The family of this 85-nucleotide sequence from Muraenolepis orangiensis is "mir-187 microRNA precursor family". NCBI's taxonomy places the organism under Eukaryota, Paracanthopterygii, Zeiogadaria, Gadariae, Muraenolepis. Pairs were carried over by alignment from the consensus structure, which was predicted with RNAalifold. It scores 62 bits against the family's covariance model. For this family Rfam cites "Vertebrate microRNA genes" (Lim et al., Science, 2003). Its family is annotated with miRNA-mediated post-transcriptional gene silencing and RISC complex in the Gene Ontology.
[Rfam]
RNA sequence: GGGUCCGGGCUGCAGGCUGUAACACAGGACAUGGGACCAGCCUCUCAAACCCGCUCGUGUCUUGUGUUGCAGCCAGUGGACCGGU
Numbered sequence: 001g002g003g004u005c006c007g008g009g010c011u012g013c014a015g016g017c018u019g020u021a022a023c024a025c026a027g028g029a030c031a032u033g034g035g036a037c038c039a040g041c042c043u044c045u046c047a048a049a050c051c052c053g054c055u056c057g058u059g060u061c062u063u064g065u066g067u068u069g070c071a072g073c074c075a076g077u078g079g080a081c082c083g084g085u
Stems, first nucleotide, its partner, number of pairs: 011078002015074004020069011032057004